[Rfam]
RNA sequence: GGUGGUAUGAAGCCAAUCGAAAGGUUGCUUGGACGCGGGUUCGAUUCCCGCCAGGUCCACCAAGAACACACUUGAUCGCCUGUAGCGGGCUUUCUCUAGUCAGAGCGGAUCGUCCUUCGGUGUCUGACAAUAUGGGAAGCGUGGGCAAGAGUAAGAAGACGUGAGCACCACGGCGAGUGUGUUGUUGAUGGGCCUGCCCAGGUUUCGACAGGCAGGUAAUUAGAAACGAGCAGACCACUCUUGAGAGUAUCCACUCAAGUAAAUCAAGAUGCAAACUAGCUAAAUGUCGCUGCUAACGACGCCGAUUACUCCGUAGCUCGCUACGCCUAA
Numbered sequence: 001g002g003u004g005g006u007a008u009g010a011a012g013c014c015a016a017u018c019g020a021a022a023g024g025u026u027g028c029u030u031g032g033a034c035g036c037g038g039g040u041u042c043g044a045u046u047c048c049c050g051c052c053a054g055g056u057c058c059a060c061c062a063a064g065a066a067c068a069c070a071c072u073u074g075a076u077c078g079c080c081u082g083u084a085g086c087g088g089g090c091u092u093u094c095u096c097u098a099g100u101c102a103g104a105g106c107g108g109a110u111c112g113u114c115c116u117u118c119g120g121u122g123u124c125u126g127a128c129a130a131u132a133u134g135g136g137a138a139g140c141g142u143g144g145g146c147a148a149g150a151g152u153a154a155g156a157a158g159a160c161g162u163g164a165g166c167a168c169c170a171c172g173g174c175g176a177g178u179g180u181g182u183u184g185u186u187g188a189u190g191g192g193c194c195u196g197c198c199c200a201g202g203u204u205u206c207g208a209c210a211g212g213c214a215g216g217u218a219a220u221u222a223g224a225a226a227c228g229a230g231c232a233g234a235c236c237a238c239u240c241u242u243g244a245g246a247g248u249a250u251c252c253a254c255u256c257a258a259g260u261a262a263a264u265c266a267a268g269a270u271g272c273a274a275a276c277u278a279g280c281u282a283a284a285u286g287u288c289g290c291u292g293c294u295a296a297c298g299a300c301g302c303c304g305a306u307u308a309c310u311c312c313g314u315a316g317c318u319c320g321c322u323a324c325g326c327c328u329a330a
Base pairs, nucleotide, nucleotide: 001239002238003237004236005235017224025215026214027213029211030210031209035051036050037049038048039047052196053195054194055193056192057191058190240259241258242257243256244255245254
Rfam assigns this 330-nucleotide sequence to the family "permuted transfer-messenger RNA". The literature on the family includes a 1996 paper in RNA by Williams and Bartel, "Phylogenetic analysis of tmRNA secondary structure". Rfam describes the family as follows. Bacterial tmRNA, also known as 10Sa RNA or SsrA, is named for its dual tRNA and mRNA-like properties.